Small nucleolar RNA snR60/Z15/Z230/Z193/J17: a 75-nucleotide RNA from Acrobeloides nanus. Clan: SNORD77 clan.
[Rfam]
RNA sequence: UGGGGAACAAUGAUGAUUCCAUAGUUCAACCGAAUGAUUUGUGUAGAUAAAUUUCGCCCCUAUCUGAGUUCCCUU
Numbered sequence: 001u002g003g004g005g006a007a008c009a010a011u012g013a014u015g016a017u018u019c020c021a022u023a024g025u026u027c028a029a030c031c032g033a034a035u036g037a038u039u040u041g042u043g044u045a046g047a048u049a050a051a052u053u054u055c056g057c058c059c060c061u062a063u064c065u066g067a068g069u070u071c072c073c074u075u
Stems, first nucleotide, its partner, number of pairs: 004072005